Rfam assigns this 80-nucleotide RNA from Hermetia illucens to the family "drz-agam-1 ribozyme". On this family, see Webb et al., Science 2009: "Widespread occurrence of self-cleaving ribozymes". The match comes from Rfam's covariance-model search (42 bits). NCBI's taxonomy places the organism under Eukaryota, Endopterygota, Aparaglossata, Brachycera, Hermetia.
[Rfam]
RNA sequence: UACUACCAAACCCCUUCCUCCACCUCCACGUGGUGAUCGCCGGGAGUUCUUUCUUUAUGAAAAACUGCAGACGGAGAGGG
Number, nucleotide and partner (000 for none) at each position: 001u000002a000003c000004u000005a000006c000007c000008a000009a000010a000011c000012c000013c080014c079015u078016u077017c076018c000019u074020c073021c000022a034023c033024c032025u000026c000027c000028a000029c000030g000031u000032g024033g023034u022035g000036a000037u000038c000039g000040c000041c000042g000043g000044g000045a000046g066047u000048u064049c000050u062051u061052u060053c000054u059055u000056u000057a000058u000059g054060a052061a051062a050063a000064a048065c000066u046067g000068c000069a000070g000071a000072c000073g020074g019075a000076g017077a016078g015079g014080g013